Small nucleolar RNA snR43: a 205-nucleotide RNA from Hyphopichia burtonii. Rfam links the family to the GO terms RNA processing and nucleolus. The family's consensus secondary structure is taken from published work. Clan: SNORA9 clan. Lineage of the source: Eukaryota > Dikarya > saccharomyceta > Pichiomycetes > Hyphopichia burtonii. A search with the family's covariance model found it, with a score of 151 bits.
Nucleotides: 205
Stems, first nucleotide, its partner, number of pairs: 003062004016048004020043006072125005078119008088109004131198004137193005153184005160176001162175003166171001
Number, partner (000 for none) and nucleotide at each position: 001000a002000u003062c004061u005060c006059c007000u008000g009000u010000u011000u012000c013000u014000g015000c016048c017047c018046u019045a020043c021042g022041u023040u024039c025038g026000u027000u028000u029000c030000g031000u032000u033000u034000c035000c036000a037000u038025c039024g040023a041022a042021u043020g044000a045019u046018a047017g048016g049000u050000u051000c052000u053000g054000g055000u056000g057000a058000u059006g060005g061004a062003g063000u064000a065000g066000a067000a068000a069000a070000a071000g072125c073124c074123u075122a076121a077000g078119a079118a080117c081116g082115g083114a084113c085112c086000u087000u088109g089108g090107a091106c092000a093000c094000u095000u096000u097000u098000g099000a100000u101000a102000c103000a104000u105000c106091g107090u108089c109088c110000u111000u112085g113084g114083u115082c116081u117080g118079u119078u120000g121076u122075u123074g124073g125072g126000a127000u128000c129000g130000u131198g132197u133196g134195g135000u136000g137193a138192g139191u140190u141189g142000u143000a144000u145000c146000c147000u148000u149000g150000u151000g152000u153184g154183g155182u156181g157180g158000a159000u160176u161000u162175a163174u164173c165000u166171a167000a168000a169000a170000u171166u172000u173164g174163a175162u176160a177000c178000u179000u180157u181156c182155a183154u184153c185000u186000g187000a188000u189141c190140g191139g192138c193137u194000u195134c196133c197132a198131c199000u200000a201000u202000a203000u204000u205000u
Record summary
It is annotated as an H/ACA-box small nucleolar RNA.